[Rfam]
Rfam assigns this 232-nucleotide part of an RNA from Psychroflexus salarius to the family "Bacterial large subunit ribosomal RNA".
RNA sequence: GAGUUACCGGUGUUAGCGAGACUAAUUGAUUCAGUCAAGUAGUCGUAGCGAAAGCGAGUCUGAAUAGGGCGAUUAAGUUAGCAUUGGUAGACGCGAAACCGUGUGAUCUACCCUUGGGCAGGUUGAAGCUUUGUUAACCCAAAGUGGAGGACCGCACCCGUUGACGUUGAAAAGUCUUGGGAUGACCUGAGGGUAGGGGUGAAAGGCCAAUCAAACUCGGAAAUAGCUCGUA
Dot-bracket structure: ....(((((((((((((..((((..(((.......)))..))))...((....))..((((.....))))......)))))))))))))..((.(...(((.((...((((((((((((.((((...((((((......))))))....))))...(((...(((........)))..)))..).))))))))))).(((.....)))......)).)))......).))..
Record summary: Gene Ontology terms of the family: ribosome and structural constituent of ribosome. Taxonomically the source falls in Psychroflexus (Bacteria, Bacteroidota, Flavobacteriia, Flavobacteriaceae).